[Rfam]
RNA sequence: UUGUGGGGGGAUCGCCGCCGGUCAGCGAGGUUUCGCCCGCCGGCGCAAUCGGU
Numbered sequence: 001u002u003g004u005g006g007g008g009g010g011a012u013c014g015c016c017g018c019c020g021g022u023c024a025g026c027g028a029g030g031u032u033u034c035g036c037c038c039g040c041c042g043g044c045g046c047a048a049u050c051g052g053u
Stems, first nucleotide, its partner, number of pairs: 016045007025036004
RNA: ffh sRNA